[Rfam]
RNA: mir-16 microRNA precursor family
Organism: Terrapene triunguis
RNA sequence: CACAGCCAGCAGCAGUGCAGAAGUAAGGAUGUCAUGGUAUGGUAUUGCCUCCCUUACUUCUGCGCUGCUGCUGGCUGUG
Dot-bracket structure: (((.(((...((((((((.(.(((((((.......................))))))))..))))))))...))).)))
Numbered sequence: 001c002a003c004a005g006c007c008a009g010c011a012g013c014a015g016u017g018c019a020g021a022a023g024u025a026a027g028g029a030u031g032u033c034a035u036g037g038u039a040u041g042g043u044a045u046u047g048c049c050u051c052c053c054u055u056a057c058u059u060c061u062g063c064g065c066u067g068c069u070g071c072u073g074g075c076u077g078u079g
Stems, first nucleotide, its partner, number of pairs: 001079003005075003011069008020059001022058007